[Rfam]
The record is a 369-nucleotide sequence from Eggerthella lenta, which matches "transfer-messenger RNA" in Rfam. By type it is a non-coding RNA gene. The family is grouped with related families in Rfam's "tRNA clan". Rfam's curators write: Bacterial tmRNA, also known as 10Sa RNA or SsrA, is named for its dual tRNA and mRNA-like properties. Its role is to liberate the mRNA from a stalled ribosome. To accomplish this part of the tmRNA is used as a reading frame that ends in a translation stop signal. The broken mRNA is replaced in the ribosome by the tmRNA and translation of the tmRNA leads to addition of a proteolysis tag to the incomplete protein enabling recognition by a protease.

RNA sequence: GGGGGCGACUGGUUUCGACAUGGUACGUUUGAAAUGAGGAGCAGGUCGUGGUCUCCUCGCCACGUUAAACAGGGGUACCGUCAAUUUAAUUGGCAAGAACAACACUCAGAGCGCUCCGGCGCUCGCCAUGGCUGCUUAAUAGCGCCUGGCUGUCGGCCUUGGGACUUCCCCGCCCCUCGGUCCGGCAUCAACCUAGGGGAAUGCGCUUGAGCACGUAGCCGGUAUGGCUCAGGCAAAGAUCGAACCGGCUAGGGUGCGUCUCGCUUGUCCGCGGGCCGGCCGCAUCCGAAUCCCGACCACGGACUAAGCUUGUAGAGCCUCAUGGAGAAGGUAGUAUGGACCGGAGUUCGAUUCUCCGCGCCUCCACCA
Number, nucleotide and partner (000 for none) at each position: 001g365002g364003g363004g362005g361006c360007g359008a000009c000010u000011g000012g000013u000014u000015u000016c000017g000018a000019c338020a337021u336022g335023g000024u333025a332026c331027g000028u329029u000030u000031g000032a000033a000034a323035u322036g321037a320038g319039g318040a000041g000042c312043a311044g310045g309046u308047c064048g063049u062050g061051g060052u077053c000054u075055c074056c073057u072058c000059g000060c051061c050062a049063c048064g047065u000066u000067a000068a000069a000070c000071a000072g057073g056074g055075g054076u000077a052078c000079c000080g000081u000082c000083a000084a000085u000086u000087u000088a000089a000090u000091u000092g000093g000094c000095a000096a000097g000098a000099a000100c000101a000102a000103c000104a000105c000106u000107c000108a000109g000110a000111g000112c000113g000114c000115u000116c000117c000118g000119g000120c000121g000122c000123u000124c000125g000126c000127c148128a147129u000130g000131g146132c000133u144134g143135c142136u000137u000138a000139a000140u000141a000142g135143c134144g133145c000146c131147u128148g127149g000150c000151u187152g186153u185154c184155g183156g182157c000158c180159u179160u000161g177162g176163g175164a000165c000166u000167u201168c000169c199170c198171c196172g000173c000174c000175c163176c162177u161178c000179g159180g158181u000182c156183c155184g154185g153186c152187a151188u000189c000190a000191a000192c000193c000194u000195a000196g171197g000198g170199g169200a000201a167202u000203g000204c000205g234206c233207u232208u231209g230210a229211g228212c227213a000214c000215g000216u000217a250218g249219c248220c247221g246222g245223u000224a000225u000226g000227g212228c211229u210230c209231a208232g207233g206234c205235a000236a000237a000238g000239a000240u000241c000242g000243a000244a000245c222246c221247g220248g219249c218250u217251a000252g287253g286254g285255u284256g283257c282258g281259u000260c279261u278262c000263g276264c275265u274266u000267g304268u303269c302270c301271g300272c000273g298274g265275g264276c263277c000278g261279g260280c000281c258282g257283c256284a255285u254286c253287c252288g000289a000290a000291u000292c000293c000294c000295g000296a000297c000298c273299a000300c271301g270302g269303a268304c267305u000306a000307a000308g046309c045310u044311u043312g042313u000314a000315g000316a000317g000318c039319c038320u037321c036322a035323u034324g000325g000326a000327g000328a000329a028330g000331g026332u025333a024334g000335u022336a021337u020338g019339g000340a000341c000342c358343g357344g356345a355346g354347u000348u000349c000350g000351a000352u000353u000354c346355u345356c344357c343358g342359c007360g006361c005362c004363u003364c002365c001366a000367c000368c000369a000